Rfam assigns this 102-nucleotide sequence from Siminovitchia fortis to the family "Purine riboswitch aptamer". It scores 84 bits against the family's covariance model. NCBI's taxonomy places the organism under Bacteria, Bacillati, Bacilli, Bacillaceae, Siminovitchia.
[Rfam]
RNA sequence: CAGAAAUAUGUCGUUUUAUAUCGUAUAAUCGCGGGGAUAUGGCCCGCAAGUUUCUACCAGGCUGCCGUAAAUAGCUUGACUACGAGAUGAAAACGGGGAUUA
Numbered sequence: 001c002a003g004a005a006a007u008a009u010g011u012c013g014u015u016u017u018a019u020a021u022c023g024u025a026u027a028a029u030c031g032c033g034g035g036g037a038u039a040u041g042g043c044c045c046g047c048a049a050g051u052u053u054c055u056a057c058c059a060g061g062c063u064g065c066c067g068u069a070a071a072u073a074g075c076u077u078g079a080c081u082a083c084g085a086g087a088u089g090a091a092a093a094c095g096g097g098g099a100u101u102a
Stems, first nucleotide, its partner, number of pairs: 018088002021085005029049001031047005058078007